[Rfam]
RNA sequence: ACGGUACCGGUUCCCGUUGGUGCGCAAACUCCGCGCCCAUCGACCCGGCGACC
Numbered sequence: 001a002c003g004g005u006a007c008c009g010g011u012u013c014c015c016g017u018u019g020g021u022g023c024g025c026a027a028a029c030u031c032c033g034c035g036c037c038c039a040u041c042g043a044c045c046c047g048g049c050g051a052c053c
Base pairs, nucleotide, nucleotide: 003053004052005051007048008047009046010045015042016041018039019038020037022036023035024034025033
L31-Actinobacteria ribosomal protein leader: a 53-nucleotide sequence. Clan: Ribosomal Protein L31 Leader clan.